[Rfam]
RNA: Small nucleolar RNA SNORA20
Organism: Molossus molossus
RNA sequence: AUUCCCAUUUGUUUGCUGCUAUAGUCUUUACAAUGACAUGAGCAGUUAUACGCAUGGGAUAAAAUAACAUUGGACCACUGUCAAUUGAGGUGGAAUAACCAUUUCAUCUCUUCUGCAUGCAUGGUCUAGACAUUG
Numbered sequence: 001a002u003u004c005c006c007a008u009u010u011g012u013u014u015g016c017u018g019c020u021a022u023a024g025u026c027u028u029u030a031c032a033a034u035g036a037c038a039u040g041a042g043c044a045g046u047u048a049u050a051c052g053c054a055u056g057g058g059a060u061a062a063a064a065u066a067a068c069a070u071u072g073g074a075c076c077a078c079u080g081u082c083a084a085u086u087g088a089g090g091u092g093g094a095a096u097a098a099c100c101a102u103u104u105c106a107u108c109u110c111u112u113c114u115g116c117a118u119g120c121a122u123g124g125u126c127u128a129g130a131c132a133u134u135g
Stems, first nucleotide, its partner, number of pairs: 003059006015046006022038001025036002070129008079117003087110010